[Rfam]
RNA sequence: GCACUGGUGUAGCUCAGUGGUUACUUCGAUUAUCAAUUCUCUCUGCAGAAUUCGCUGAUCUCUCUCCCGUCCGGGAUCGAGCCACGGGUGCUGUCCAGUGUUUUU
Number, nucleotide and partner (000 for none) at each position: 001g000002c100003a099004c098005u097006g096007g095008u000009g000010u000011a000012g089013c088014u087015c086016a000017g085018u084019g083020g082021u000022u000023a000024c000025u081026u080027c079028g078029a077030u076031u075032a000033u000034c000035a000036a000037u000038u000039c000040u000041c000042u000043c000044u000045g000046c000047a000048g000049a000050a000051u000052u000053c000054g000055c000056u000057g000058a000059u000060c000061u000062c000063u000064c000065u000066c000067c000068c000069g000070u000071c000072c000073g000074g000075g031076a030077u029078c028079g027080a026081g025082c020083c019084a018085c017086g015087g014088g013089u012090g000091c000092u000093g000094u000095c007096c006097a005098g004099u003100g002101u000102u000103u000104u000105u000
The family of this 105-nucleotide sequence from Lates calcarifer is "Vault RNA". Lineage of the source: Eukaryota > Gnathostomata > Actinopterygii > Ctenosquamata > Lates. This family of RNAs are found as part of the enigmatic vault ribonucleoprotein complex. The complex consists of a major vault protein (MVP), two minor vault proteins (VPARP and TEP1), and several small untranslated RNA molecules. It is annotated as a non-coding RNA gene.